[Rfam]
RNA sequence: CUGACAGAAGAGAGUGAGCACACAGCGGGCAAACUGCAUCGAUCCGCACCUUUGCAAUCGAGACGGCGCAUGAACGAACGAUGCAGCUGCUGCUGCGUGCUCACUUCUCUCUCUGUCAG
Dot-bracket structure: ((((((((.((((((((((((.((((((.............................................................)))))).))))))))).)))..))))))))
Numbered sequence: 001c002u003g004a005c006a007g008a009a010g011a012g013a014g015u016g017a018g019c020a021c022a023c024a025g026c027g028g029g030c031a032a033a034c035u036g037c038a039u040c041g042a043u044c045c046g047c048a049c050c051u052u053u054g055c056a057a058u059c060g061a062g063a064c065g066g067c068g069c070a071u072g073a074a075c076g077a078a079c080g081a082u083g084c085a086g087c088u089g090c091u092g093c094u095g096c097g098u099g100c101u102c103a104c105u106u107c108u109c110u111c112u113c114u115g116u117c118a119g
Stems, first nucleotide, its partner, number of pairs: 001119008010109003013105009023095006

This 119-nucleotide sequence from Panicum virgatum belongs to the Rfam family "mir-156 microRNA precursor family". The organism belongs to Panicum sect. Hiantes, within Eukaryota. Rfam's curators write: This family represents the plant microRNA (miRNA) precursor mir-156.